The family of this 84-nucleotide RNA from Bombyx mori is "mir-2807 microRNA precursor family". Lineage of the source: Eukaryota > Aparaglossata > Lepidoptera > Heteroneura > Bombyx.

RNA sequence: CUAACUGAAAUUUGUAUGAAGUCGAAACAUUUUCCAACGUUUGUCGCUAGGGGCGCUGUUUCGACCCCAUACAAAUACGAGUUA
Numbered sequence: 001c002u003a004a005c006u007g008a009a010a011u012u013u014g015u016a017u018g019a020a021g022u023c024g025a026a027a028c029a030u031u032u033u034c035c036a037a038c039g040u041u042u043g044u045c046g047c048u049a050g051g052g053g054c055g056c057u058g059u060u061u062c063g064a065c066c067c068c069a070u071a072c073a074a075a076u077a078c079g080a081g082u083u084a
Base pairs, nucleotide, nucleotide: 010076011075012074013073014072015071016070018068021065022064023063024062025061026060027059028058029057034052035051039047040046